RNA sequence: CACAUGCUCCUUAGAUCCAUCUUUGUGAGUAUCUGUGUGCUGAGUUCUGCUGGAUAACUUCAGUUUCUAGCAGUUCCAGUCAGAGAUACUCAGCAACUUUUUUGGUUGUACAGUCAAAGAUGCUUGAGUCAUUGGCAUGUAAGAAUAAUACAACUGCAUGUUAGCUUUCUGUUCUGAUAGAAAUGGCUGUACAUGUACAAGUCAUUUGUCGCUAUCAGGACUUGGCUGGUAUGCAGACAUG
Numbered sequence: 001c002a003c004a005u006g007c008u009c010c011u012u013a014g015a016u017c018c019a020u021c022u023u024u025g026u027g028a029g030u031a032u033c034u035g036u037g038u039g040c041u042g043a044g045u046u047c048u049g050c051u052g053g054a055u056a057a058c059u060u061c062a063g064u065u066u067c068u069a070g071c072a073g074u075u076c077c078a079g080u081c082a083g084a085g086a087u088a089c090u091c092a093g094c095a096a097c098u099u100u101u102u103u104g105g106u107u108g109u110a111c112a113g114u115c116a117a118a119g120a121u122g123c124u125u126g127a128g129u130c131a132u133u134g135g136c137a138u139g140u141a142a143g144a145a146u147a148a149u150a151c152a153a154c155u156g157c158a159u160g161u162u163a164g165c166u167u168u169c170u171g172u173u174c175u176g177a178u179a180g181a182a183a184u185g186g187c188u189g190u191a192c193a194u195g196u197a198c199a200a201g202u203c204a205u206u207u208g209u210c211g212c213u214a215u216c217a218g219g220a221c222u223u224g225g226c227u228g229g230u231a232u233g234c235a236g237a238c239a240u241g
Base pairs, nucleotide, nucleotide: 002140003139004138005137006136007135008134010128011127012126013125014124018122019121020120021119022118023117024116025115026092027091028090029089030088031087032084033083034082039080040079041078042077044076047073048072049071050070053067056065057064058063093109094108095107096106097105098104154236155235156234157233158232161229163227164226165225166224173219174218175217176216177215178214179213180212184211185210186209191202192201

The record is a 241-nucleotide RNA sequence from Heliornis fulica, which matches "Small nucleolar RNA SNORA53" in Rfam.